The family of this 326-nucleotide RNA from Oxyruncus cristatus is "7SK RNA". Rfam's curators write: 7SK was discovered as an abundant small nuclear RNA in the mid-70s but a possible function has only recently been suggested. Two independent studies have found that 7SK RNA binds the CDK9/cyclin T complex (known as elongation factor P-TEFb). P-TEFb activates transcription by phosphorylating the C-terminal domain of RNA polymerase II. This process is negatively regulated by the 7SK RNP. The secondary structure of 7SK RNA shown here was proposed by Wasserman and Steitz on the basis of chemical modification and enzymatic cleavage experiments. A reference for the family is Blencowe (2002), "Transcription: surprising role for an elusive small nuclear RNA", Curr Biol. Clan: 7SK clan. The base pairs follow the family's consensus structure, which is taken from published work.
RNA sequence: GGAUGUGAGCAUGAUCUGUCUGUAACUUCUGGCACCCUACUGAUCACAAGGGUUGAUUUAACUGAUUUGGGUAGGUGGGUAGGUGACCCCUUUCUCCCUCAAUGUUCUCUGUGUGUCCCUCCCAAAGCUGUGUGCUUGGCUGAUGAGGACAACCUUCCUCAUAGAGGUGGUAUCAUUCAUUGGUCAAAGGUAUAUGGUAGCUGCACUCCCCUUCUAGAAACUCCAAACAAGCUCAAGGUCCAUUUAUGUGGGAAUGCAAGGUAGUCAAGCUUCCAAGACUGAAGACACAUCGAGUGAGGAGCUGCAUGCAGCAGUCUGCCAUUGCU
Dot-bracket structure: (((..((((...((...(.......(.((((.(.(.(((..((((..................)))))))...)...).)))).)....).))....))))....))).......((((((((((.((.....)))))).((....(((......))).))..)))).)).............................(((...((.((.(.(......(((...(.(((...........))).)..)))...).).)).))...)))......................((((.((.(((((.....)))))...)).).)))
Numbered sequence: 001g002g003a004u005g006u007g008a009g010c011a012u013g014a015u016c017u018g019u020c021u022g023u024a025a026c027u028u029c030u031g032g033c034a035c036c037c038u039a040c041u042g043a044u045c046a047c048a049a050g051g052g053u054u055g056a057u058u059u060a061a062c063u064g065a066u067u068u069g070g071g072u073a074g075g076u077g078g079g080u081a082g083g084u085g086a087c088c089c090c091u092u093u094c095u096c097c098c099u100c101a102a103u104g105u106u107c108u109c110u111g112u113g114u115g116u117c118c119c120u121c122c123c124a125a126a127g128c129u130g131u132g133u134g135c136u137u138g139g140c141u142g143a144u145g146a147g148g149a150c151a152a153c154c155u156u157c158c159u160c161a162u163a164g165a166g167g168u169g170g171u172a173u174c175a176u177u178c179a180u181u182g183g184u185c186a187a188a189g190g191u192a193u194a195u196g197g198u199a200g201c202u203g204c205a206c207u208c209c210c211c212u213u214c215u216a217g218a219a220a221c222u223c224c225a226a227a228c229a230a231g232c233u234c235a236a237g238g239u240c241c242a243u244u245u246a247u248g249u250g251g252g253a254a255u256g257c258a259a260g261g262u263a264g265u266c267a268a269g270c271u272u273c274c275a276a277g278a279c280u281g282a283a284g285a286c287a288c289a290u291c292g293a294g295u296g297a298g299g300a301g302c303u304g305c306a307u308g309c310a311g312c313a314g315u316c317u318g319c320c321a322u323u324g325c326u
Stems, first nucleotide, its partner, number of pairs: 001108003006101004013093002018090001026085001028083004033078001035074001037070003042067004116170002118167004122139004127135002141161002147158003200270003206264002209261002212258001214256001221252003227247001229245003293326003296322001298320002301315005